[Rfam]
RNA sequence: GUCCCGGGCCGUGACUGGCGCCUGUGGAUGGAAUCGACCAUCGGGAAGCGGCCCCCGUGCUUGCCGCGCGCCUGGGCCUCUACC
Numbered sequence: 001g002u003c004c005c006g007g008g009c010c011g012u013g014a015c016u017g018g019c020g021c022c023u024g025u026g027g028a029u030g031g032a033a034u035c036g037a038c039c040a041u042c043g044g045g046a047a048g049c050g051g052c053c054c055c056c057g058u059g060c061u062u063g064c065c066g067c068g069c070g071c072c073u074g075g076g077c078c079u080c081u082a083c084c
Stems, first nucleotide, its partner, number of pairs: 003057001006054007015045002017072005028041004063077003
A member of the RNA family "ZMP/ZTP riboswitch aptamer (pfl RNA motif)" from Nocardia aurantia, 84 nucleotides long. A search with the family's covariance model found it, with a score of 52 bits. Taxonomically the source falls in Nocardia (Bacteria, Bacillati, Actinomycetes, Mycobacteriales). For this family Rfam cites "An ancient riboswitch class in bacteria regulates purine biosynthesis and one-carbon metabolism" (Kim et al., Mol Cell, 2015).